Small nucleolar RNA SNORA40: a 128-nucleotide sequence from Peromyscus maniculatus. A search with the family's covariance model found it, with a score of 66 bits. On this family, see Ofengand and Bakin, J Mol Biol 1997: "Mapping to nucleotide resolution of pseudouridine residues in large subunit ribosomal RNAs from representative eukaryotes, prokaryotes, archaebacteria, mitochondria and chloroplasts". Rfam 15.1 lists 2,550 matches to the family in 517 species. It is annotated as an H/ACA-box small nucleolar RNA. Lineage of the source: Eukaryota > Bilateria > Euarchontoglires > Cricetidae > Peromyscus maniculatus. About the family: The snoRNA ACA 40 belongs to the H/ACA family of snoRNAs and guides the pseudouridylation of 28S rRNA subunit at position U4565. NB This family has a high threshold value to exclude a large number of closely related sequences that do not appear to have conserved H and ACA boxes, and may be pseudogenes. The base pairs follow the family's consensus structure, which was predicted with RNAalifold.

RNA sequence: AGAAUUUGGGUGUGUGUUUGUUCAAAUAGUGAACGAUGGCAGAUUAGACAGGUACAAAAAUAGAUCGUUUUUUGCAACCCAGAUUUCAUUGUUCAGUAUGAGUUUUGAUGUAUAGAAGAAGUAUAAGA
Numbered sequence: 001a002g003a004a005u006u007u008g009g010g011u012g013u014g015u016g017u018u019u020g021u022u023c024a025a026a027u028a029g030u031g032a033a034c035g036a037u038g039g040c041a042g043a044u045u046a047g048a049c050a051g052g053u054a055c056a057a058a059a060a061u062a063g064a065u066c067g068u069u070u071u072u073u074g075c076a077a078c079c080c081a082g083a084u085u086u087c088a089u090u091g092u093u094c095a096g097u098a099u100g101a102g103u104u105u106u107g108a109u110g111u112a113u114a115g116a117a118g119a120a121g122u123a124u125a126a127g128a
Base pairs, nucleotide, nucleotide: 002055004053005052006051007050008049011046014040015039018036019035020034021033067122068121070119071118072117073116080107081106082105083104085102086101087100088099089098